[Rfam]
RNA sequence: GCCGGUCCUCGGUAGUGCUUGCUUGUGACUCACGAGCCAGCUCGAUCGAAGACCGGC
Dot-bracket structure: (((((((.(((((...(((.(((((((...))))))).)))...))))).)))))))

This 57-nucleotide RNA sequence from Cryptosporangium phraense belongs to the Rfam family "Actino-pnp RNA". It scores 49 bits against the family's covariance model. Pairs were carried over by alignment from the consensus structure, which is taken from published work.